Background: The family of this 144-nucleotide RNA from Cynoglossus semilaevis is "Small Cajal body specific RNA 1". About the family: scaRNAs are a specific class of small nuclear RNAs which localise to the Cajal bodies and guide the modification of RNA polymerase II transcribed spliceosomal RNAs U1, U2, U4, U5 and U12. ACA35 belong to the H/ACA box class of guide RNAs as it has the predicted hairpin-hinge-hairpin-tail structure, conserved H/ACA-box motifs and is found associated with GAR1. It is predicted to guide pseudouridylation of the U2 spliceosomal snRNA at residue U89. The match comes from Rfam's covariance-model search (48 bits). NCBI's taxonomy places the organism under Eukaryota, Actinopteri, Pleuronectoidei, Cynoglossidae, Cynoglossus. A reference for the family is Darzacq et al. (2002), "Cajal body-specific small nuclear RNAs: a novel class of 2'-O-methylation and pseudouridylation guide RNAs", EMBO J. Its family is annotated with RNA processing, Cajal body and nucleolus in the Gene Ontology. Rfam 15.1 lists 715 matches to the family in 617 species.
RNA sequence: CCGCACCAGAUACAAGCCCGACAGCCCGUCUCCACCCAGACGGCCGUGGCUGCGGGGCUCUGACGGUGCCACAUCAACUGGCCCUGAGAUUUAAGCUGUACAGUGGGGAGUUUCACUGUAGAGUUAUGACUCGAGGGCACAGAG
Numbered sequence: 001c002c003g004c005a006c007c008a009g010a011u012a013c014a015a016g017c018c019c020g021a022c023a024g025c026c027c028g029u030c031u032c033c034a035c036c037c038a039g040a041c042g043g044c045c046g047u048g049g050c051u052g053c054g055g056g057g058c059u060c061u062g063a064c065g066g067u068g069c070c071a072c073a074u075c076a077a078c079u080g081g082c083c084c085u086g087a088g089a090u091u092u093a094a095g096c097u098g099u100a101c102a103g104u105g106g107g108g109a110g111u112u113u114c115a116c117u118g119u120a121g122a123g124u125u126a127u128g129a130c131u132c133g134a135g136g137g138c139a140c141a142g143a144g
Stems, first nucleotide, its partner, number of pairs: 003069005015059004022052005027042005081138003101118006119134001121132004